The record is a 71-nucleotide RNA from Barnesiella sp. An55, which matches "Bacteroidetes FopS (family of paralogous sRNAs)" in Rfam. The RNA-binding protein RbpB and BTncRNA_FopS sRNA are involved in the post-transcription regulation of polysaccharide utilisation loci (PUL). For this family Rfam cites "The global RNA-binding protein RbpB is a regulator of polysaccharide utilization in Bacteroides thetaiotaomicron" (Ruttiger et al., Nat Commun, 2025). Rfam links the family to the GO term sRNA-mediated gene silencing. The base pairs follow the family's consensus structure, which is taken from published work. NCBI's taxonomy places the organism under Bacteria, Pseudomonadati, Bacteroidota, Barnesiellaceae, Barnesiella.
RNA sequence: GUGUUUUUCAUAGUAUUAGAUUUAAGGUUAAUGAAGAUUGGUUGUCGUGAGACAACCUUUCCUUUUUUAAA
Dot-bracket structure: .......................................(((((((....)))))))..............

Rfam 15.1 lists 822 matches to the family in 178 species.